[Rfam]
RNA sequence: GUUGGUAAAUUGGCAAGAUGUCGGCAUAGCUGAAGUUGAAAAGCGAUCUUUGAGAACGCUAUGCUGCAUCUAGUCAGUUAUUCAAU
Numbered sequence: 001g002u003u004g005g006u007a008a009a010u011u012g013g014c015a016a017g018a019u020g021u022c023g024g025c026a027u028a029g030c031u032g033a034a035g036u037u038g039a040a041a042a043g044c045g046a047u048c049u050u051u052g053a054g055a056a057c058g059c060u061a062u063g064c065u066g067c068a069u070c071u072a073g074u075c076a077g078u079u080a081u082u083c084a085a086u
Stems, first nucleotide, its partner, number of pairs: 005081002008079007016071005022066009
RNA: mir-31 microRNA precursor family
Organism: Drosophila persimilis